[Rfam]
RNA sequence: AAAAAGCCCGCGAUGCGUCGGCAUCGGCGGGCUUCAGGUGCGGCAGCUUUCGACUCGGGCCGGCAUUCGGGCCGGCCUUCGCUUUAGCUGUUUCGGGUGACUGCCCCGCGUCCGCAAGCUGAGAUCAAAUCGACGCAGCGCCCAUCCUAACAUGUGUCACGACGGGCGCG
Numbered sequence: 001a002a003a004a005a006g007c008c009c010g011c012g013a014u015g016c017g018u019c020g021g022c023a024u025c026g027g028c029g030g031g032c033u034u035c036a037g038g039u040g041c042g043g044c045a046g047c048u049u050u051c052g053a054c055u056c057g058g059g060c061c062g063g064c065a066u067u068c069g070g071g072c073c074g075g076c077c078u079u080c081g082c083u084u085u086a087g088c089u090g091u092u093u094c095g096g097g098u099g100a101c102u103g104c105c106c107c108g109c110g111u112c113c114g115c116a117a118g119c120u121g122a123g124a125u126c127a128a129a130u131c132g133a134c135g136c137a138g139c140g141c142c143c144a145u146c147c148u149a150a151c152a153u154g155u156g157u158c159a160c161g162a163c164g165g166g167c168g169c170g
Base pairs, nucleotide, nucleotide: 004034005033006032007031008030009029010028011027014023015022016021039137040136041135042134045083046082047081052079053078056075058073059072061071084122085121086120087119088118089117095107096106097105108115109114151170153168154167155166

The family of this 170-nucleotide RNA sequence from Burkholderia glumae is "Burkholderia sRNA Bp2_Cand287_SIPHT". Rfam classes the family as a small RNA. The literature on the family includes a 2012 paper in BMC Genomics by Khoo et al., "Computational discovery and RT-PCR validation of novel Burkholderia conserved and Burkholderia pseudomallei unique sRNAs". Rfam's curators put it in the seed alignment. The organism belongs to Burkholderia glumae, within Bacteria.